[Rfam]
Shown here is a 131-nucleotide RNA from Vitis vinifera, a member of the family "MIR845_2 microRNA precursor family". On this family, see Jaillon et al., Nature 2007: "The grapevine genome sequence suggests ancestral hexaploidization in major angiosperm phyla". The organism belongs to Vitis, within Eukaryota.
RNA sequence: AUCAUAAUAAAGAACGCACACUAGGGCCAUGGGAUAAACAAAAACCCUAAAAAAACAAGUUAACACACCCUUGAAUGGUUCUACCAUGAUUACUAACUUAUGGCUCUAAUACCAGUUGUUAGGAAAAAUCU
Numbered sequence: 001a002u003c004a005u006a007a008u009a010a011a012g013a014a015c016g017c018a019c020a021c022u023a024g025g026g027c028c029a030u031g032g033g034a035u036a037a038a039c040a041a042a043a044a045c046c047c048u049a050a051a052a053a054a055a056c057a058a059g060u061u062a063a064c065a066c067a068c069c070c071u072u073g074a075a076u077g078g079u080u081c082u083a084c085c086a087u088g089a090u091u092a093c094u095a096a097c098u099u100a101u102g103g104c105u106c107u108a109a110u111a112c113c114a115g116u117u118g119u120u121a122g123g124a125a126a127a128a129u130c131u
Stems, first nucleotide, its partner, number of pairs: 010120002013117003022108012048086001053080002056077002060073001062071001
The base pairs follow the family's consensus structure, which was predicted with WAR.